Overview: This 59-nucleotide RNA sequence from Actinoplanes philippinensis belongs to the Rfam family "Actino-pnp RNA". Pairs were carried over by alignment from the consensus structure, which is taken from published work. A search with the family's covariance model found it, with a score of 59 bits.
[Rfam]
RNA sequence: ACCGGUCCUCGGUAGUGGUUCCCAGGUGUCAUCCCUGGGCACUUCGAUCGAAGACCGGC
Dot-bracket structure: .((((((.(((((...(((.((((((.(...).)))))).)))...))))).)))))).